[Rfam]
RNA sequence: GAUGGCAGGCCCAUCGCAGGAGGUGACAGGCAUAUCCUGCAAACCACCUUGUGGUGCUUUGCUAUGAAAAUAGGAGGUGCUGAGCGACAAGGAAAAGGCAGACAUGAUCUGUCAGGU
Numbered sequence: 001g002a003u004g005g006c007a008g009g010c011c012c013a014u015c016g017c018a019g020g021a022g023g024u025g026a027c028a029g030g031c032a033u034a035u036c037c038u039g040c041a042a043a044c045c046a047c048c049u050u051g052u053g054g055u056g057c058u059u060u061g062c063u064a065u066g067a068a069a070a071u072a073g074g075a076g077g078u079g080c081u082g083a084g085c086g087a088c089a090a091g092g093a094a095a096a097g098g099c100a101g102a103c104a105u106g107a108u109c110u111g112u113c114a115g116g117u
Base pairs, nucleotide, nucleotide: 001015002014003013004012005011016040017039018038019037020036021035023033024032025031045116047092048091049090050089051088052087053081054080056078057077058076062073063072064071097113098112099111100110101109102108

This 117-nucleotide sequence from Dyadobacter psychrotolerans belongs to the Rfam family "Group II catalytic intron D1-D4-2". The pairing is the family consensus, mapped onto this sequence. The match comes from Rfam's covariance-model search (88 bits). Rfam's curators write: Group II introns are found in rRNA, tRNA and mRNA of organelles in fungi, plants and protists, and also in mRNA in bacteria.